[Rfam]
RNA sequence: CUGGAGGACUAAGAAAGUAGAACCAGUAAAGUCAAGUGGCUUCUACUGAUACUCUCCUCCUAAAGUAAAUAGUGGAAGAACAGAGUCUGUCUGUGAGAUGAAGACAGGCACUACUUACUCUACCAACAGUG
Numbered sequence: 001c002u003g004g005a006g007g008a009c010u011a012a013g014a015a016a017g018u019a020g021a022a023c024c025a026g027u028a029a030a031g032u033c034a035a036g037u038g039g040c041u042u043c044u045a046c047u048g049a050u051a052c053u054c055u056c057c058u059c060c061u062a063a064a065g066u067a068a069a070u071a072g073u074g075g076a077a078g079a080a081c082a083g084a085g086u087c088u089g090u091c092u093g094u095g096a097g098a099u100g101a102a103g104a105c106a107g108g109c110a111c112u113a114c115u116u117a118c119u120c121u122a123c124c125a126a127c128a129g130u131g
Base pairs, nucleotide, nucleotide: 003060004059005058006057007056008055010051011050018045019044020043021042022041024039027034072123073122074121075120076119077116082112083111085109086108087107088106089105
RNA: Small Cajal body specific RNA 15